[Rfam]
RNA sequence: GAGGUUUACAAUGAAUUCCCGAUAGGACGGCCAGAAAAGGUCAGACGCCUUGUAACCGAAAAUGAAGGGGGAAUAGUAAUG
Numbered sequence: 001g002a003g004g005u006u007u008a009c010a011a012u013g014a015a016u017u018c019c020c021g022a023u024a025g026g027a028c029g030g031c032c033a034g035a036a037a038a039g040g041u042c043a044g045a046c047g048c049c050u051u052g053u054a055a056c057c058g059a060a061a062a063u064g065a066a067g068g069g070g071g072a073a074u075a076g077u078a079a080u081g
Base pairs, nucleotide, nucleotide: 016073017072018071019070020069024050025049026048029042030041031040032039056068057067